[Rfam]
RNA sequence: UACCCGUCGCAACGGCUUCCUGGCGCGGCGGGAUUACAUAAUGGAGCG
Numbered sequence: 001u002a003c004c005c006g007u008c009g010c011a012a013c014g015g016c017u018u019c020c021u022g023g024c025g026c027g028g029c030g031g032g033a034u035u036a037c038a039u040a041a042u043g044g045a046g047c048g
Base pairs, nucleotide, nucleotide: 004031005030006029007028008027009026010025013022014021015047016046017045019044020043